[Rfam]
RNA sequence: UGUCGAUAAUGGCAAACUCAUUGAAAAAUGAGGACGCAAAGCCUAUGGAUCUAAGGUCAAUAGACUAAGGUAGCCGGGUUACCGAA
Numbered sequence: 001u002g003u004c005g006a007u008a009a010u011g012g013c014a015a016a017c018u019c020a021u022u023g024a025a026a027a028a029u030g031a032g033g034a035c036g037c038a039a040a041g042c043c044u045a046u047g048g049a050u051c052u053a054a055g056g057u058c059a060a061u062a063g064a065c066u067a068a069g070g071u072a073g074c075c076g077g078g079u080u081a082c083c084g085a086a
Base pairs, nucleotide, nucleotide: 012037013036017032018031019030020029021028022027040080041079042078043077046076047075048074049071050070051069056065057064058063
The record is an 86-nucleotide RNA from Salinibacillus xinjiangensis, which matches "c-di-GMP-I riboswitch aptamer" in Rfam.
Its family is annotated with cyclic-di-GMP binding in the Gene Ontology.
The base pairs follow the family's consensus structure, which is taken from published work.
A search with the family's covariance model found it, with a score of 79 bits.